[Rfam]
RNA sequence: AUAUUCACCUGACAGGGAAGAUAACAUGAUCACAAAGGUAAUUUUCCUAGGGCGAGGCCUAUCCAUGGCACUCUGGAUGUGCUGACCCCUGCAAUUUCCCCAAAUGUGGGAAACUUGAUAGUUUGUGGUAGUAGGGGACUGCGUUUGCACUCUUCCCUA
Numbered sequence: 001a002u003a004u005u006c007a008c009c010u011g012a013c014a015g016g017g018a019a020g021a022u023a024a025c026a027u028g029a030u031c032a033c034a035a036a037g038g039u040a041a042u043u044u045u046c047c048u049a050g051g052g053c054g055a056g057g058c059c060u061a062u063c064c065a066u067g068g069c070a071c072u073c074u075g076g077a078u079g080u081g082c083u084g085a086c087c088c089c090u091g092c093a094a095u096u097u098c099c100c101c102a103a104a105u106g107u108g109g110g111a112a113a114c115u116u117g118a119u120a121g122u123u124u125g126u127g128g129u130a131g132u133a134g135g136g137g138a139c140u141g142c143g144u145u146u147g148c149a150c151u152c153u154u155c156c157c158u159a
Stems, first nucleotide, its partner, number of pairs: 016048002019045003023042001026039002049090004054086001056083003060079005092117003095113003099109002133158006141150001143148001
RNA: U1 spliceosomal RNA
Organism: Carlito syrichta